[Rfam]
RNA: Small nucleolar RNA snR80
Organism: Lachnellula suecica
RNA sequence: GUCACUUGUCAAACACUCUGGCCCUUACCUCCAGUCCCUCGAGGACUUGGUUCAAUCUGUGGUAUCGGCCUAUUUUUAGAACAAGAAGAUUGAUUUUCGUCCGAUUACUCACCGCGAUACCCUCCGAACAUGGGUGUAGUGGUCCUAUUUUAUGGUCAACAU
Numbered sequence: 001g002u003c004a005c006u007u008g009u010c011a012a013a014c015a016c017u018c019u020g021g022c023c024c025u026u027a028c029c030u031c032c033a034g035u036c037c038c039u040c041g042a043g044g045a046c047u048u049g050g051u052u053c054a055a056u057c058u059g060u061g062g063u064a065u066c067g068g069c070c071u072a073u074u075u076u077u078a079g080a081a082c083a084a085g086a087a088g089a090u091u092g093a094u095u096u097u098c099g100u101c102c103g104a105u106u107a108c109u110c111a112c113c114g115c116g117a118u119a120c121c122c123u124c125c126g127a128a129c130a131u132g133g134g135u136g137u138a139g140u141g142g143u144c145c146u147a148u149u150u151u152a153u154g155g156u157c158a159a160c161a162u
Stems, first nucleotide, its partner, number of pairs: 007083003020070004026064004031050002033047005099157001101155002112142004117137006